[Rfam]
RNA: Nitrogen stress-induced RNA 1
RNA sequence: UGGUAGAUGCACCUUGAUCUUCAAUUCCCCUAGUCGGCUAAUGCCCACUGGGGGUUUUUUAU
Dot-bracket structure: .(((......))).............((((((((.((......)).))))))))........
Numbered sequence: 001u002g003g004u005a006g007a008u009g010c011a012c013c014u015u016g017a018u019c020u021u022c023a024a025u026u027c028c029c030c031u032a033g034u035c036g037g038c039u040a041a042u043g044c045c046c047a048c049u050g051g052g053g054g055u056u057u058u059u060u061a062u
Stems, first nucleotide, its partner, number of pairs: 002013003027054008036045002